[Rfam]
RNA: Small nucleolar RNA SNORA15
RNA sequence: GCAUGGAUGAAUUCUGCACUAGCUUUCUUCAGUAGCUAUUGCAGUCAGACACUAUGCCAGAAUAAAUUCCCUUUUUGCACUCUGAUUGGCAUGCUUUUUAUAUGUGAGUGGGCAUGCCCUUGGAAGUGGGAUAUAU
Dot-bracket structure: ((((((.......(((((.....................))))).......))))))............((.((((........(..(((((((((.............)))))))))..).)))).)).......
Numbered sequence: 001g002c003a004u005g006g007a008u009g010a011a012u013u014c015u016g017c018a019c020u021a022g023c024u025u026u027c028u029u030c031a032g033u034a035g036c037u038a039u040u041g042c043a044g045u046c047a048g049a050c051a052c053u054a055u056g057c058c059a060g061a062a063u064a065a066a067u068u069c070c071c072u073u074u075u076u077g078c079a080c081u082c083u084g085a086u087u088g089g090c091a092u093g094c095u096u097u098u099u100a101u102a103u104g105u106g107a108g109u110g111g112g113c114a115u116g117c118c119c120u121u122g123g124a125a126g127u128g129g130g131a132u133a134u135a136u
Stems, first nucleotide, its partner, number of pairs: 001057006014044005070129002073126004085121001088118009